About this RNA: The record is a 129-nucleotide sequence from Populus trichocarpa, which matches "Small nucleolar RNA snoR111" in Rfam.

[Rfam]
RNA sequence: UCAAUGGGAUGAGAGACGGAUACAGUGUCUCUUUCGCUCGAAAGAACAGAGGUAGAACAAAUGUAAUGGCCGAGAUAUCGUUUCAGUCGUCAUUCUUUGAUUGACGAUUCGAUUGUUGCUCGUCCACAU
Numbered sequence: 001u002c003a004a005u006g007g008g009a010u011g012a013g014a015g016a017c018g019g020a021u022a023c024a025g026u027g028u029c030u031c032u033u034u035c036g037c038u039c040g041a042a043a044g045a046a047c048a049g050a051g052g053u054a055g056a057a058c059a060a061a062u063g064u065a066a067u068g069g070c071c072g073a074g075a076u077a078u079c080g081u082u083u084c085a086g087u088c089g090u091c092a093u094u095c096u097u098u099g100a101u102u103g104a105c106g107a108u109u110c111g112a113u114u115g116u117u118g119c120u121c122g123u124c125c126a127c128a129u
Base pairs, nucleotide, nucleotide: 006039007038008037011034013031014030015029016028017027018026068125069124071122072121073120074119077113078112079111080110086108087107088106089105090104091103092102094100095099
Annotation
It is one of the family's seed sequences. Taxonomically the source falls in Populus (Eukaryota, Viridiplantae, eudicotyledons, Pentapetalae). By type it is an H/ACA-box small nucleolar RNA. Pairs were carried over by alignment from the consensus structure, which was predicted with WAR. A reference for the family is Marker et al. (2002), "Experimental RNomics: identification of 140 candidates for small non-messenger RNAs in the plant Arabidopsis thaliana", Curr Biol.